The record is a 96-nucleotide sequence from Mycoplasma sp. CAG:611, which matches "SAM riboswitch aptamer (S box leader)" in Rfam. The family's consensus secondary structure is taken from published work.
RNA sequence: ACCUUAUUAAGAGUGAUGGAGGGACAGGCCCUAAGAAAUCCGGCAACCUAUUAAAUUAGGUGCUAAUUCCUGCGAUUUAUAAUCGAAAAAUAAGGA
Numbered sequence: 001a002c003c004u005u006a007u008u009a010a011g012a013g014u015g016a017u018g019g020a021g022g023g024a025c026a027g028g029c030c031c032u033a034a035g036a037a038a039u040c041c042g043g044c045a046a047c048c049u050a051u052u053a054a055a056u057u058a059g060g061u062g063c064u065a066a067u068u069c070c071u072g073c074g075a076u077u078u079a080u081a082a083u084c085g086a087a088a089a090a091u092a093a094g095g096a
Stems, first nucleotide, its partner, number of pairs: 002095007013041001015040003021031003025072004042064004047060002050056002068088001073085005